[Rfam]
RNA sequence: UGACCCAAGUUUGGGUCACCUAGCCAACUGACGUUGUUAGUGAACUUAGUAUUCACAAAAAAGCCAAUAGAUUAGUGUCUAUUGGCUAUUUUUUU
Number, nucleotide and partner (000 for none) at each position: 001u018002g017003a016004c015005c014006c013007a000008a000009g000010u000011u000012u000013g006014g005015g004016u003017c002018a001019c000020c000021u000022a000023g000024c000025c000026a000027a000028c000029u000030g000031a000032c000033g000034u061035u060036g000037u058038u000039a000040g056041u055042g054043a053044a052045c000046u000047u000048a000049g000050u000051a000052u044053u043054c042055a041056c040057a000058a037059a000060a035061a034062a000063g000064c085065c084066a083067a082068u081069a080070g079071a078072u000073u000074a000075g000076u000077g000078u071079c070080u069081a068082u067083u066084g065085g064086c000087u000088a000089u000090u000091u000092u000093u000094u000095u000
A member of the RNA family "Qrr RNA" from Vibrio proteolyticus, 95 nucleotides long. Pairs were carried over by alignment from the consensus structure, which is taken from published work. Lineage of the source: Bacteria > Pseudomonadota > Vibrionales > Vibrio > Vibrio proteolyticus. Gene Ontology term of the family: quorum sensing. This family represents a set of small RNAs (the Qrr RNAs) that are thought to be involved in the regulation of quorum sensing in Vibrio species.